[Rfam]
Annotation
Rfam assigns this 403-nucleotide part of an RNA from Phytophthora infestans to the family "Eukaryotic large subunit ribosomal RNA". The organism belongs to Phytophthora infestans, within Eukaryota.

RNA sequence: GUUCGUUGUCUAAACAGUAAUCCAACCCAGUACGAGAGGAACCGUUGGUUCAGAUAAUUGGUAACUGCGGUUAGCUGAAAAGCUAGUGCCGCCAAGCUACCAUCUGUAGGAUUAUGGCUGAACGCCUCUAAGUCAGAAUCCAUGCUGGAAUAGACGAUAAUCACCUUUCCCGAUGUGCCGCGAAUAGCGAUAGGUGUCUUCUGGACACCCAACAUCAUACAAUUGCAACGCACUCCGCUGCCUGUCAAGUACUGGCGGUGGAGAGUAGGCUGAUUUGUAAUUUCAAAUAUUGGGAAAGAUAAAUCCUUUGUAGACGACUUAACUACAGAACGGGGUGUUGUAAGCAUGAGAGUAGUCUUGUACUACGAUCUGCUGAGAUUUAGCCCUUGUUCUAUUGAUUUGU
Number, nucleotide and partner (000 for none) at each position: 001g000002u000003u000004c000005g158006u157007u156008g155009u154010c153011u152012a151013a000014a000015c147016a146017g145018u144019a000020a050021u000022c048023c047024a046025a045026c044027c000028c000029a000030g000031u000032a000033c000034g000035a000036g000037a000038g000039g000040a000041a000042c000043c000044g026045u025046u024047g023048g022049u000050u020051c106052a105053g104054a103055u102056a000057a000058u000059u099060g098061g097062u000063a000064a000065c000066u000067g092068c091069g090070g089071u086072u085073a084074g083075c082076u081077g000078a000079a000080a000081a076082g075083c074084u073085a072086g071087u000088g000089c070090c069091g068092c067093c000094a000095a000096g000097c061098u060099a059100c000101c000102a055103u054104c053105u052106g051107u000108a000109g141110g140111a000112u000113u000114a000115u135116g134117g133118c132119u131120g000121a000122a000123c000124g000125c000126c000127u000128c000129u000130a000131a119132g118133u117134c116135a115136g000137a000138a000139u000140c110141c109142a000143u000144g018145c017146u016147g015148g000149a000150a000151u012152a011153g010154a009155c008156g007157a006158u005159a000160a000161u000162c000163a000164c000165c000166u297167u296168u295169c294170c293171c292172g291173a290174u289175g000176u000177g000178c000179c000180g000181c000182g000183a000184a000185u000186a000187g000188c000189g000190a000191u000192a000193g000194g000195u000196g000197u000198c000199u000200u000201c000202u000203g000204g000205a000206c000207a000208c000209c000210c000211a000212a000213c000214a000215u000216c000217a000218u000219a000220c000221a000222a000223u000224u000225g000226c000227a000228a000229c000230g000231c000232a000233c000234u000235c000236c000237g000238c000239u000240g000241c000242c000243u000244g000245u000246c000247a000248a000249g000250u000251a000252c000253u000254g000255g000256c000257g000258g000259u000260g000261g000262a000263g000264a000265g000266u000267a000268g000269g000270c000271u000272g000273a000274u000275u000276u000277g000278u000279a000280a000281u000282u000283u000284c000285a000286a000287a000288u000289a174290u173291u172292g171293g170294g169295a168296a167297a166298g000299a000300u000301a401302a400303a399304u398305c397306c000307u321308u000309u000310g318311u000312a000313g000314a000315c000316g000317a000318c310319u000320u000321a307322a000323c000324u000325a000326c000327a393328g392329a391330a390331c389332g388333g386334g385335g384336u000337g379338u378339u000340g000341u000342a000343a000344g373345c372346a371347u000348g000349a369350g000351a000352g366353u365354a364355g363356u362357c000358u000359u000360g000361u000362a356363c355364u354365a353366c352367g000368a000369u349370c000371u346372g345373c344374u000375g000376a000377g000378a338379u337380u000381u000382a000383g000384c335385c334386c333387u000388u332389g331390u330391u329392c328393u327394a000395u000396u000397g305398a304399u303400u302401u301402g000403u000